[Rfam]
Notes
Rfam assigns this 128-nucleotide RNA sequence from Oxobacter pfennigii to the family "c-di-AMP riboswitch aptamer (ydaO/yuaA leader)".

RNA sequence: UUAUAUGUUCAGCUGAGUCCGGUGGUACCGGAGCGGGGGAGAAACUUAAUUGGGGUGUAUCUUAUUAAAGAGGGCUACUCUAUGGCCUAACCCGACAACUAACCUCGUAAGCGGGAUAGAGGAGGUUA
Numbered sequence: 001u002u003a004u005a006u007g008u009u010c011a012g013c014u015g016a017g018u019c020c021g022g023u024g025g026u027a028c029c030g031g032a033g034c035g036g037g038g039g040a041g042a043a044a045c046u047u048a049a050u051u052g053g054g055g056u057g058u059a060u061c062u063u064a065u066u067a068a069a070g071a072g073g074g075c076u077a078c079u080c081u082a083u084g085g086c087c088u089a090a091c092c093c094g095a096c097a098a099c100u101a102a103c104c105u106c107g108u109a110a111g112c113g114g115g116a117u118a119g120a121g122g123a124g125g126u127u128a
Stems, first nucleotide, its partner, number of pairs: 012112003018032005033108006044051001053093003061070003073087004